[Rfam]
RNA sequence: AUCUAUCUUCGGGGCUGGGUGAAAUUCCCGACCGGCGGUGAUGAGGAUGUUUCUCUAAGCCCGCGAGCCGCAAGGCAGGAUUUGGUGCGAUUCCAAAGCCGACAGUAAAGUCUGGAUGGGAGAAGAUGGAG
Numbered sequence: 001a002u003c004u005a006u007c008u009u010c011g012g013g014g015c016u017g018g019g020u021g022a023a024a025u026u027c028c029c030g031a032c033c034g035g036c037g038g039u040g041a042u043g044a045g046g047a048u049g050u051u052u053c054u055c056u057a058a059g060c061c062c063g064c065g066a067g068c069c070g071c072a073a074g075g076c077a078g079g080a081u082u083u084g085g086u087g088c089g090a091u092u093c094c095a096a097a098g099c100c101g102a103c104a105g106u107a108a109a110g111u112c113u114g115g116a117u118g119g120g121a122g123a124a125g126a127u128g129g130a131g
Base pairs, nucleotide, nucleotide: 003129004128005127006126007125008124009123010122017029018028019027031111032110033101034100035064036063037062038061059099060098069075081097082096083095084094085093103114104113105112
The record is a 131-nucleotide RNA sequence from Pseudoneobacillus rhizosphaerae, which matches "FMN riboswitch aptamer (RFN element)" in Rfam. The family's consensus secondary structure is taken from published work. Lineage of the source: Bacteria > Bacillota > Caryophanales > Bacillaceae > Pseudoneobacillus.